[Rfam]
RNA: Small nucleolar RNA SNORA32
Organism: Galemys pyrenaicus
RNA sequence: AGGUCAUUACCAAGUCUUUUAGAAUGCAGUUUCUCAAUUGCUGUGGACAUGACCUUAAAAAGAAUCCCACUAGGUUUGGUUUUUGGUACUUGGUUAGCAUUCAGCCUACUGGGGACACUG
Numbered sequence: 001a002g003g004u005c006a007u008u009a010c011c012a013a014g015u016c017u018u019u020u021a022g023a024a025u026g027c028a029g030u031u032u033c034u035c036a037a038u039u040g041c042u043g044u045g046g047a048c049a050u051g052a053c054c055u056u057a058a059a060a061a062g063a064a065u066c067c068c069a070c071u072a073g074g075u076u077u078g079g080u081u082u083u084u085g086g087u088a089c090u091u092g093g094u095u096a097g098c099a100u101u102c103a104g105c106c107u108a109c110u111g112g113g114g115a116c117a118c119u120g
Base pairs, nucleotide, nucleotide: 003053004052005051006050007049010046011045012044026041027040028039029038066113067112068111069110073106074105075104076103084099085098